[Rfam]
RNA sequence: AACUUAGAUAGAGGUGCGAAAUUUAAUAGUAGUAUUAUGGAGGUAAGCUCAAUGAAGUAAUACGAAAGGAACUUUCGCCGAAGUAAAUAGUUGAUUGCUUUGAUGCUAUUUACUGGUCUUAUGUAAAAUAUACAUAUGACUGUCACAAAUUAUUUUGUGGAGAGCUAUUUUCAAU
Numbered sequence: 001a002a003c004u005u006a007g008a009u010a011g012a013g014g015u016g017c018g019a020a021a022u023u024u025a026a027u028a029g030u031a032g033u034a035u036u037a038u039g040g041a042g043g044u045a046a047g048c049u050c051a052a053u054g055a056a057g058u059a060a061u062a063c064g065a066a067a068g069g070a071a072c073u074u075u076c077g078c079c080g081a082a083g084u085a086a087a088u089a090g091u092u093g094a095u096u097g098c099u100u101u102g103a104u105g106c107u108a109u110u111u112a113c114u115g116g117u118c119u120u121a122u123g124u125a126a127a128a129u130a131u132a133c134a135u136a137u138g139a140c141u142g143u144c145a146c147a148a149a150u151u152a153u154u155u156u157g158u159g160g161a162g163a164g165c166u167a168u169u170u171u172c173a174a175u
Stems, first nucleotide, its partner, number of pairs: 006170006016078006023071002032063007082114010115141004120136006143160007
Lysine riboswitch aptamer: a 175-nucleotide RNA sequence from Clostridium uliginosum. Taxonomically the source falls in Clostridium (Bacteria, Clostridia, Eubacteriales, Clostridiaceae). The family has 47 seed sequences and 3,224 matches in Rfam 15.1.